[Rfam]
The family of this 56-nucleotide RNA sequence from Rossellomorea marisflavi is "Ribosomal protein L13 leader". Its family is annotated with regulation of gene expression in the Gene Ontology. For this family Rfam cites "Diverse mechanisms for regulating ribosomal protein synthesis in Escherichia coli" (Zengel and Lindahl, Prog Nucleic Acid Res Mol Biol, 1994). The family's consensus secondary structure was predicted with CMfinder. Rfam's curators write: This family is a putative r-protein leader autoregulatory structure found in B. subtilis and other low-GC Gram-positive bacteria.

RNA sequence: GGUAUGUUAUUAACCCCACGAUAAGCCCCGGAAACUUAUUGUGAUUUAAGAAUAAA
Numbered sequence: 001g002g003u004a005u006g007u008u009a010u011u012a013a014c015c016c017c018a019c020g021a022u023a024a025g026c027c028c029c030g031g032a033a034a035c036u037u038a039u040u041g042u043g044a045u046u047u048a049a050g051a052a053u054a055a056a
Stems, first nucleotide, its partner, number of pairs: 007052002010049004017043009
Dot-bracket structure: ......((.((((...(((((((((.........)))))))))..)))).))....